[Rfam]
RNA sequence: GUUCGAGUUGUGCGGAUUGUAAUCCUUGAACGCAUAUCCGCGAGACUGGUCAAUCGUGUGGAACAACGGGUUCCAGUCGAACAUGACGACCAUGUAUCCUGGCAGCGUGUUGGCCACGAACAUCUUGCCCGAGGCAAUCAUGUUUGCCCGCUG
Dot-bracket structure: ..(...(((..(.((.......)).)..)))..)...(.(.((......))..).).......((.((.((((.....))))....(((.((((...((((((((.((.(((....)))..)).))).))).))....)))).)))..)).))
Ruegeria cis2 sRNA: a 153-nucleotide sequence from Sagittula marina. The family's consensus secondary structure was predicted with RNAfold. On this family, see Rivers et al., Front Microbiol 2016: "Experimental Identification of Small Non-Coding RNAs in the Model Marine Bacterium Ruegeria pomeroyi DSS-3". It is annotated as a small RNA. Gene Ontology term of the family: regulation of gene expression.